[Rfam]
RNA: mir-16 microRNA precursor family
Organism: Anas platyrhynchos
RNA sequence: UUAACUUUAUGGAGUCACAAUAAUAUUGGUAUAUAUAUAUAUAUACCAAUAUUAUUGUGACUCCAUAAAGUUAA
Numbered sequence: 001u002u003a004a005c006u007u008u009a010u011g012g013a014g015u016c017a018c019a020a021u022a023a024u025a026u027u028g029g030u031a032u033a034u035a036u037a038u039a040u041a042u043a044u045a046c047c048a049a050u051a052u053u054a055u056u057g058u059g060a061c062u063c064c065a066u067a068a069a070g071u072u073a074a
Stems, first nucleotide, its partner, number of pairs: 001074003005070003010067001011064008022053008